[Rfam]
RNA sequence: GGCUGCCAGGCAGUGUGGUUAGCUGAUUGCCCAAAGCAACAAUCACUAGCCACACAGCCAGGUGAAC
Numbered sequence: 001g002g003c004u005g006c007c008a009g010g011c012a013g014u015g016u017g018g019u020u021a022g023c024u025g026a027u028u029g030c031c032c033a034a035a036g037c038a039a040c041a042a043u044c045a046c047u048a049g050c051c052a053c054a055c056a057g058c059c060a061g062g063u064g065a066a067c
Stems, first nucleotide, its partner, number of pairs: 004064003009059002013055010024045006